[Rfam]
RNA sequence: UGGCCAAAAAAGCAGUGUGAGGUCACUUGGCUCAAGCCAAGUGAGGGCGUUUUUCCAGCUUGCUGGCACCCCUGAUUAUUCAGGAAGGUGAUCCCCAUUAGUUCAACUUUUAGCCACCCCGCCGCGCUGCUUUUUUGCC
Numbered sequence: 001u002g003g004c005c006a007a008a009a010a011a012g013c014a015g016u017g018u019g020a021g022g023u024c025a026c027u028u029g030g031c032u033c034a035a036g037c038c039a040a041g042u043g044a045g046g047g048c049g050u051u052u053u054u055c056c057a058g059c060u061u062g063c064u065g066g067c068a069c070c071c072c073u074g075a076u077u078a079u080u081c082a083g084g085a086a087g088g089u090g091a092u093c094c095c096c097a098u099u100a101g102u103u104c105a106a107c108u109u110u111u112a113g114c115c116a117c118c119c120c121g122c123c124g125c126g127c128u129g130c131u132u133u134u135u136u137g138c139c
Base pairs, nucleotide, nucleotide: 002139003138004137007135008134009133010132011131012130013129014128023044024043025042026041027040028039029038030037045095046094047093055066056065057064058063067090068089069088070087071084072083073082074081075080
Rfam assigns this 139-nucleotide sequence to the family "EFASI RNA". Rfam classes the family as a small RNA. The sequence is in the family's curated seed alignment.